Source information:
A member of the RNA family "mir-15 microRNA precursor family" from Brachypteracias leptosomus, 82 nucleotides long. This family represents the related mir-15a and mir-15b sequences. Taxonomically the source falls in Brachypteracias (Eukaryota, Deuterostomia, Saurischia, Aves). On this family, see Lagos-Quintana et al., Science 2001: "Identification of novel genes coding for small expressed RNAs". Pairs were carried over by alignment from the consensus structure, which was predicted with RNAalifold.
RNA sequence: CCUUAAAGUACUUUAGCAGCACAUCAUGGUUUGCAGGCUCUAAUAGAUGCGAAUCAUUAUUUGCUGCUUUAGAAAUUUAAGG
Dot-bracket structure: ((((((........(((((((.((.((((((((((............)))))))))).)).)))))))........))))))